[Rfam]
RNA: terC RNA
Organism: Mesorhizobium japonicum
RNA sequence: GGUGCGGGCCGGGCCCCUCUGACGAUCGCUUCUGGUGAUUGUGAUGUCGGACCGCUUUA
Number, nucleotide and partner (000 for none) at each position: 001g000002g000003u000004g000005c000006g053007g052008g000009c050010c049011g048012g047013g000014c000015c000016c000017c000018u000019c000020u000021g000022a042023c041024g040025a039026u038027c037028g036029c035030u000031u000032c000033u000034g000035g029036u028037g027038a026039u025040u024041g023042u022043g000044a000045u000046g000047u012048c011049g010050g009051a000052c007053c006054g000055c000056u000057u000058u000059a000